Description: Rfam assigns this 97-nucleotide RNA sequence from Leptobrachium leishanense to the family "mir-146 microRNA precursor family". A search with the family's covariance model found it, with a score of 64 bits. For this family Rfam cites "Identification of tissue-specific microRNAs from mouse" (Lagos-Quintana et al., Curr Biol, 2002).
[Rfam]
RNA sequence: AUGGCAGGUCCCGGCUCUGAGAACUGAAUUCCAUGGACUGGUCCUGCCACUGCAAUUUCCGUCCAUAGUUUUCAGUUCUCCAGCUUGGCUGCUGCUG
Numbered sequence: 001a002u003g004g005c006a007g008g009u010c011c012c013g014g015c016u017c018u019g020a021g022a023a024c025u026g027a028a029u030u031c032c033a034u035g036g037a038c039u040g041g042u043c044c045u046g047c048c049a050c051u052g053c054a055a056u057u058u059c060c061g062u063c064c065a066u067a068g069u070u071u072u073c074a075g076u077u078c079u080c081c082a083g084c085u086u087g088g089c090u091g092c093u094g095c096u097g
Stems, first nucleotide, its partner, number of pairs: 010088002013085003020079008035064004
Annotation:
The base pairs follow the family's consensus structure, which was predicted with WAR. Taxonomically the source falls in Leptobrachium (Eukaryota, Bilateria, Vertebrata, Dipnotetrapodomorpha).